[Rfam]
The record is a 48-nucleotide RNA from Thalassorhabdomicrobium marinisediminis, which matches "Guanidine-II riboswitch aptamer (mini-ykkC)" in Rfam. Lineage of the source: Bacteria > Pseudomonadati > Pseudomonadota > Alphaproteobacteria > Thalassorhabdomicrobium. Pairs were carried over by alignment from the consensus structure, which is taken from published work.
RNA sequence: GCGUGAGGACGACCUCCCCAAACUGGACAAUUUUUCGGGACGACCCGA
Numbered sequence: 001g002c003g004u005g006a007g008g009a010c011g012a013c014c015u016c017c018c019c020a021a022a023c024u025g026g027a028c029a030a031u032u033u034u035u036c037g038g039g040a041c042g043a044c045c046c047g048a
Stems, first nucleotide, its partner, number of pairs: 003018001005016004035048005